[Rfam]
RNA: c-di-GMP-I riboswitch aptamer
RNA sequence: CCGUUACCAGGGCAAACCCGGCGAAAGCCGGGGGCGCAAAGCUACGGGCCUAAGGGCAGGGAGGCCUAAGGUCGCCGGGCUGCCGGG
Dot-bracket structure: ...........((...((((((....))))))...))..((((.((((((....(((......)))...)))..)))))))......